[Rfam]
RNA sequence: UUGGUUAGAACUCAACUCAGGUUGUCACCGCAACGGGGCAACACUUCCGCUCGCCACGCCGGCAGCGAGCGCUAAAACCGGCAGAACGACUCUGCCCGGCCUCAGCCGAGGCCGACGGGACAUUACAGUCAAC
Numbered sequence: 001u002u003g004g005u006u007a008g009a010a011c012u013c014a015a016c017u018c019a020g021g022u023u024g025u026c027a028c029c030g031c032a033a034c035g036g037g038g039c040a041a042c043a044c045u046u047c048c049g050c051u052c053g054c055c056a057c058g059c060c061g062g063c064a065g066c067g068a069g070c071g072c073u074a075a076a077a078c079c080g081g082c083a084g085a086a087c088g089a090c091u092c093u094g095c096c097c098g099g100c101c102u103c104a105g106c107c108g109a110g111g112c113c114g115a116c117g118g119g120a121c122a123u124u125a126c127a128g129u130c131a132a133c
Base pairs, nucleotide, nucleotide: 021042022041023040024039025038026037028036029035048071049070050069051068052067053066054065080096081095082094083093084092085091098113099112100111101110102109103108
The record is a 133-nucleotide RNA sequence from Pseudomonas sp. SDI, which matches "rmf RNA" in Rfam. Lineage of the source: Bacteria > Pseudomonadati > Pseudomonadota > Gammaproteobacteria > Pseudomonas.